Nuclear RNase P: a 296-nucleotide RNA sequence from Cavia porcellus.

RNA sequence: GGCGGAGGGAAGCUCAUCGGUGGGCUACGAGCUGAGUGCGUGAUGUCACUCUGCAGCACGUCCCUUGGGAAGGUCUGAGACCAGGGCCAGCGGCGGCCCUAACAGGCCCUCCCUGAACCUCAGGGAAGUGAGUUCCCAGAGAGCAGGGCUGUGCGCGAGGGCAGACCGGGCAGGAGAUGCCAGCCCACCCUCUGGAGGGGCUCGGCAGAUGCCUCCUUAGCCGGAGCUUGGAAAAAUGCUUUUUAAGGCAACUAAAUUGUCACACAAGGCUAAGAACUUUUCCAAUUUUCAUCGUC
Numbered sequence: 001g002g003c004g005g006a007g008g009g010a011a012g013c014u015c016a017u018c019g020g021u022g023g024g025c026u027a028c029g030a031g032c033u034g035a036g037u038g039c040g041u042g043a044u045g046u047c048a049c050u051c052u053g054c055a056g057c058a059c060g061u062c063c064c065u066u067g068g069g070a071a072g073g074u075c076u077g078a079g080a081c082c083a084g085g086g087c088c089a090g091c092g093g094c095g096g097c098c099c100u101a102a103c104a105g106g107c108c109c110u111c112c113c114u115g116a117a118c119c120u121c122a123g124g125g126a127a128g129u130g131a132g133u134u135c136c137c138a139g140a141g142a143g144c145a146g147g148g149c150u151g152u153g154c155g156c157g158a159g160g161g162c163a164g165a166c167c168g169g170g171c172a173g174g175a176g177a178u179g180c181c182a183g184c185c186c187a188c189c190c191u192c193u194g195g196a197g198g199g200g201c202u203c204g205g206c207a208g209a210u211g212c213c214u215c216c217u218u219a220g221c222c223g224g225a226g227c228u229u230g231g232a233a234a235a236a237u238g239c240u241u242u243u244u245a246a247g248g249c250a251a252c253u254a255a256a257u258u259g260u261c262a263c264a265c266a267a268g269g270c271u272a273a274g275a276a277c278u279u280u281u282c283c284a285a286u287u288u289u290c291a292u293c294g295u296c
Base pairs, nucleotide, nucleotide: 001296002295003294004293008290009289010288018259022064023063024062034051035050036049037048038047039045078287079286086249087248088247095108096107097106098105110126111125112124113123114122128243130241131240132239133238148227149226150225266280267279268278269277271275
Pairs were carried over by alignment from the consensus structure, which is taken from published work.